[Rfam]
RNA sequence: UUAACGAAAGGGAAUGAGGUUCUCCCUAGGUAAGUUUACCUAAACCGCAGUUAUUUGCUGAUGACUUCUGUGACGCU
Numbered sequence: 001u002u003a004a005c006g007a008a009a010g011g012g013a014a015u016g017a018g019g020u021u022c023u024c025c026c027u028a029g030g031u032a033a034g035u036u037u038a039c040c041u042a043a044a045c046c047g048c049a050g051u052u053a054u055u056u057g058c059u060g061a062u063g064a065c066u067u068c069u070g071u072g073a074c075g076c077u
Base pairs, nucleotide, nucleotide: 010026011025012024013023016068017067018066019065020064021063047058048057049056050055

The family of this 77-nucleotide RNA sequence from Globicatella sp. HMSC072A10 is "Fluoride riboswitch aptamer (crcB RNA motif)".
A search with the family's covariance model found it, with a score of 43 bits.
Rfam 15.1 lists 2,293 matches to the family in 1,982 species.
Rfam links the family to the GO terms positive regulation of gene expression and response to fluoride.
Taxonomically the source falls in Globicatella (Bacteria, Bacilli, Lactobacillales, Aerococcaceae).
Pairs were carried over by alignment from the consensus structure, which is taken from published work.